RNA sequence: GUCGAGAUCACCCUCUUUGGUCCGGGGUGCAGGCUUCAAACCUGUAGCCGAUUAGGAUCGGAGCGGUUCGAUUCCGCCUUCUCGGC
Numbered sequence: 001g002u003c004g005a006g007a008u009c010a011c012c013c014u015c016u017u018u019g020g021u022c023c024g025g026g027g028u029g030c031a032g033g034c035u036u037c038a039a040a041c042c043u044g045u046a047g048c049c050g051a052u053u054a055g056g057a058u059c060g061g062a063g064c065g066g067u068u069c070g071a072u073u074c075c076g077c078c079u080u081c082u083c084g085g086c
Base pairs, nucleotide, nucleotide: 001086002085003084004083005082006081007080012027013026014025015024028046029045030044031043032042033041048061049060050059051058052057063077064076065075066074

The record is an 86-nucleotide RNA from Trichobilharzia regenti, which matches "Selenocysteine transfer RNA" in Rfam. The family has 109 seed sequences and 4,211 matches in Rfam 15.1. The family is grouped with related families in Rfam's "tRNA clan". Taxonomically the source falls in Trichobilharzia (Eukaryota, Metazoa, Strigeidida, Schistosomatoidea).